[Rfam]
RNA: ASpks TB sRNA
Organism: Streptomyces malaysiensis
RNA sequence: CUUCAACGACCCAAGCCACACCGGGCGUUCACGGUCCUGCCCGUACGUCGCCAGCACCGCCUGGGCUUC
Numbered sequence: 001c002u003u004c005a006a007c008g009a010c011c012c013a014a015g016c017c018a019c020a021c022c023g024g025g026c027g028u029u030c031a032c033g034g035u036c037c038u039g040c041c042c043g044u045a046c047g048u049c050g051c052c053a054g055c056a057c058c059g060c061c062u063g064g065g066c067u068u069c
Base pairs, nucleotide, nucleotide: 016024017023029064030063032059033058037054038053039052041050043048